[Rfam]
RNA sequence: CCUGUCCCUAGAGGUGUGACAGGCAUGGCUGCUCUGUCACAGGCAUAUCAGUAGGUGGCAAAAAGAAGAGAUUAUAUCUGUGCUUGGUGUUCUGACCUAUGAACAUCUGAAUGAUUAGUAGCCUAACACU
Numbered sequence: 001c002c003u004g005u006c007c008c009u010a011g012a013g014g015u016g017u018g019a020c021a022g023g024c025a026u027g028g029c030u031g032c033u034c035u036g037u038c039a040c041a042g043g044c045a046u047a048u049c050a051g052u053a054g055g056u057g058g059c060a061a062a063a064a065g066a067a068g069a070g071a072u073u074a075u076a077u078c079u080g081u082g083c084u085u086g087g088u089g090u091u092c093u094g095a096c097c098u099a100u101g102a103a104c105a106u107c108u109g110a111a112u113g114a115u116u117a118g119u120a121g122c123c124u125a126a127c128a129c130u
Base pairs, nucleotide, nucleotide: 003060004059005058006057007055008054009053010052013049014048015047019046026039027038028037029036068127070123072121073120074119075118081113082112084110085109086108087107088105089104090103091102092101
The record is a 130-nucleotide RNA sequence from Mus musculus, which matches "Small nucleolar RNA SNORA17" in Rfam. The match comes from Rfam's covariance-model search (88 bits). Its Rfam clan is "SNORA17 clan". Pairs were carried over by alignment from the consensus structure, which was predicted with RNAalifold. Gene Ontology terms of the family: RNA processing and nucleolus. The literature on the family includes a 1997 paper in J Mol Biol by Ofengand and Bakin, "Mapping to nucleotide resolution of pseudouridine residues in large subunit ribosomal RNAs from representative eukaryotes, prokaryotes, archaebacteria, mitochondria and chloroplasts". snoRNA ACA 17 belongs to the H/ACA family of snoRNAs and is predicted to guide pseudouridylation of the 28S rRNA at positions U4659 and U4598. It shares the same host gene together with ACA43. NB This family has a high threshold value to exclude a large number of closely related sequences that do not appear to have conserved H and ACA boxes, and may be pseudogenes.